This 125-nucleotide sequence from Lachnospiraceae bacterium TWA4 belongs to the Rfam family "FMN riboswitch aptamer (RFN element)". The organism belongs to Lachnospiraceae, within Bacteria.
RNA sequence: UUUAAACUUCAGGGCGGGGUGAAAUUCCCCCCCACCGGUGGUUAUAGCCCACGAACUGGCAAGGUGCCAGCCGAUUCGGUGUAAUUCCGAAGCCGACAGUAUAGUCUGGAUGGAAGAAGUAUGAG
Numbered sequence: 001u002u003u004a005a006a007c008u009u010c011a012g013g014g015c016g017g018g019g020u021g022a023a024a025u026u027c028c029c030c031c032c033c034a035c036c037g038g039u040g041g042u043u044a045u046a047g048c049c050c051a052c053g054a055a056c057u058g059g060c061a062a063g064g065u066g067c068c069a070g071c072c073g074a075u076u077c078g079g080u081g082u083a084a085u086u087c088c089g090a091a092g093c094c095g096a097c098a099g100u101a102u103a104g105u106c107u108g109g110a111u112g113g114a115a116g117a118a119g120u121a122u123g124a125g
Base pairs, nucleotide, nucleotide: 003123004122006120007119008118009117010116017032018031019030034105035104036095037094038052039051040050041049047093048092056070057069075091076090077089078088079087097108098107099106